Shown here is a 339-nucleotide sequence from Firmicutes bacterium CAG:460, a member of the family "Bacterial RNase P class B".
The organism belongs to Bacillota, within Bacteria.
The family's consensus secondary structure is taken from published work.
Gene Ontology terms of the family: tRNA processing, dimeric ribonuclease P complex and ribonuclease P activity.
It is annotated as a ribozyme.
RNA sequence: AAUCUAGUGGCAAAUGCUAUAUAAAAUAGUUAUAUAGAGGAAAGUCCAUGCUCGCACAGACUGCGAUGUCUGUAGUGUUUGUGCUUAGGGAAAAAAUAACCUAAGGUAGUGUAUGCUAACGGCUUCGAGGAAACCUUAAAUGGUUUUAUUAGAUAUAAAAGUGCCAAAGAGACGAGUUACAAGGGAAACUUUGUAGGUGGAACGUGGUAAACCCCGCAAGCGAGAAACCCAAAUUAUGGUAGGGGAGCUUAAAGUAAAGAAAUGAAUUUACUUUGGGUGCAGAAAUGUAAGAUAAAUAUUUGCCUCUUCUUUAUGAAGAACAAAACAUGGCUUAUUAAG
Numbered sequence: 001a002a003u004c005u006a007g008u009g010g011c012a013a014a015u016g017c018u019a020u021a022u023a024a025a026a027u028a029g030u031u032a033u034a035u036a037g038a039g040g041a042a043a044g045u046c047c048a049u050g051c052u053c054g055c056a057c058a059g060a061c062u063g064c065g066a067u068g069u070c071u072g073u074a075g076u077g078u079u080u081g082u083g084c085u086u087a088g089g090g091a092a093a094a095a096a097u098a099a100c101c102u103a104a105g106g107u108a109g110u111g112u113a114u115g116c117u118a119a120c121g122g123c124u125u126c127g128a129g130g131a132a133a134c135c136u137u138a139a140a141u142g143g144u145u146u147u148a149u150u151a152g153a154u155a156u157a158a159a160a161g162u163g164c165c166a167a168a169g170a171g172a173c174g175a176g177u178u179a180c181a182a183g184g185g186a187a188a189c190u191u192u193g194u195a196g197g198u199g200g201a202a203c204g205u206g207g208u209a210a211a212c213c214c215c216g217c218a219a220g221c222g223a224g225a226a227a228c229c230c231a232a233a234u235u236a237u238g239g240u241a242g243g244g245g246a247g248c249u250u251a252a253a254g255u256a257a258a259g260a261a262a263u264g265a266a267u268u269u270a271c272u273u274u275g276g277g278u279g280c281a282g283a284a285a286u287g288u289a290a291g292a293u294a295a296a297u298a299u300u301u302g303c304c305u306c307u308u309c310u311u312u313a314u315g316a317a318g319a320a321c322a323a324a325a326c327a328u329g330g331c332u333u334a335u336u337a338a339g
Base pairs, nucleotide, nucleotide: 004339005338007335009304010303011302012301013300014299015298017037018036019035020034021033022032042333043332044331046330047329048328049327050326051224052223053222054221055220056073057072058071059070060069061068079219080218081217082216083215084105085104086103087102088101089100106120107118108117109116110115121214122213125153126152132145133144134143135142161212162211163208164207165206177196178195179194180193181192182191183190184189228244229243230242248277249276250275251274252273253272254271278289279288280287281286306318307317308316309315